[Rfam]
RNA sequence: CCGCCCGUCGCUUCUACCGAUUGAAUGGUUCGGUGAAAUCCUCGGACUAGAAUUCAUAUUAGGGCAACCUGAUCUGUAUUUUAGGAUGAGGAGUAAAUUGAAACAUUUAGAGGAAGAAGAAGUCGUAACAAGGUCUCCGUAGGUGAACCUGCGGAGGGAUCAUUU
Numbered sequence: 001c002c003g004c005c006c007g008u009c010g011c012u013u014c015u016a017c018c019g020a021u022u023g024a025a026u027g028g029u030u031c032g033g034u035g036a037a038a039u040c041c042u043c044g045g046a047c048u049a050g051a052a053u054u055c056a057u058a059u060u061a062g063g064g065c066a067a068c069c070u071g072a073u074c075u076g077u078a079u080u081u082u083a084g085g086a087u088g089a090g091g092a093g094u095a096a097a098u099u100g101a102a103a104c105a106u107u108u109a110g111a112g113g114a115a116g117a118a119g120a121a122g123u124c125g126u127a128a129c130a131a132g133g134u135c136u137c138c139g140u141a142g143g144u145g146a147a148c149c150u151g152c153g154g155a156g157g158g159a160u161c162a163u164u165u
Base pairs, nucleotide, nucleotide: 001132003129006125007124009122011119012118013117014116015115017113018112021109023108024107025106026105027104029102030101031100032099033098034097037094039092040091041090042089043088044087047084048083049082050081051080052079053078055076056075059072060071061070062069134157135156136155137154138153139152140151141150142149143148
This 165-nucleotide part of an RNA from Planoprotostelium fungivorum belongs to the Rfam family "Eukaryotic small subunit ribosomal RNA". It scores 1551 bits against the family's covariance model. The family's consensus secondary structure is taken from published work. Gene Ontology terms of the family: structural constituent of ribosome and ribosome. The literature on the family includes a 2001 paper in Science by Yusupov et al., "Crystal structure of the ribosome at 5.5 A resolution". NCBI's taxonomy places the organism under Eukaryota, Evosea, Cavosteliida, Cavosteliaceae, Planoprotostelium.